A member of the RNA family "Small nucleolar RNA SNORD34" from Pteropus alecto, 71 nucleotides long. A search with the family's covariance model found it, with a score of 56 bits.

[Rfam]
RNA sequence: CGGUGUCUUUGAUGACCCACGGUUACCUACAUUGUUUGAUCCUCGUGAGAACAGCACUGGCUGAGACACCU
Numbered sequence: 001c002g003g004u005g006u007c008u009u010u011g012a013u014g015a016c017c018c019a020c021g022g023u024u025a026c027c028u029a030c031a032u033u034g035u036u037u038g039a040u041c042c043u044c045g046u047g048a049g050a051a052c053a054g055c056a057c058u059g060g061c062u063g064a065g066a067c068a069c070c071u
Base pairs, nucleotide, nucleotide: 002070004068005067006066007065
snoRNA U34 is found in intron 5 of the ribosomal protein L13a gene in humans.
The family is grouped with related families in Rfam's "SNORD34 clan".